[Rfam]
RNA sequence: UGCGCUUUGGCAGUGUGGUUAGCUGGUUGUGUGGCCAAAUUAAUUUGUUUUUAACUAAAAUCACAGCCACUAUCUUCACUGCCGCGGCGAC
Numbered sequence: 001u002g003c004g005c006u007u008u009g010g011c012a013g014u015g016u017g018g019u020u021a022g023c024u025g026g027u028u029g030u031g032u033g034g035c036c037a038a039a040u041u042a043a044u045u046u047g048u049u050u051u052u053a054a055c056u057a058a059a060a061u062c063a064c065a066g067c068c069a070c071u072a073u074c075u076u077c078a079c080u081g082c083c084g085c086g087g088c089g090a091c
Stems, first nucleotide, its partner, number of pairs: 003089004009083002012080004017075002020072003024069008
The family of this 91-nucleotide sequence from Drosophila busckii is "mir-34 microRNA precursor family". From the family's description: Human mir-34a was discovered computationally and later experimentally verified. The mature sequence is excised from the 5' arm of the hairpin. The family is grouped with related families in Rfam's "mir-34 clan". A reference for the family is Lim et al. (2003), "Vertebrate microRNA genes", Science. Rfam 15.1 lists 2,256 matches to the family in 820 species. Pairs were carried over by alignment from the consensus structure, which was predicted with RNAalifold.